[Rfam]
The family of this 96-nucleotide RNA is "mir-210 microRNA precursor family". Rfam links the family to the GO terms miRNA-mediated post-transcriptional gene silencing and RISC complex. The family's consensus secondary structure was predicted with WAR.

RNA sequence: UUCAGGCGCAGGGCAGUACCUGCCCACCACACAUUGGGCUGACCCAAGACCACUGUGCGUGUGACAGCGGAUGAUCUGUGCCUAGGCAGAACGAAC
Numbered sequence: 001u002u003c004a005g006g007c008g009c010a011g012g013g014c015a016g017u018a019c020c021u022g023c024c025c026a027c028c029a030c031a032c033a034u035u036g037g038g039c040u041g042a043c044c045c046a047a048g049a050c051c052a053c054u055g056u057g058c059g060u061g062u063g064a065c066a067g068c069g070g071a072u073g074a075u076c077u078g079u080g081c082c083u084a085g086g087c088a089g090a091a092c093g094a095a096c
Stems, first nucleotide, its partner, number of pairs: 005082008015072001017070001020067003024063001025061002028059001030057004035052002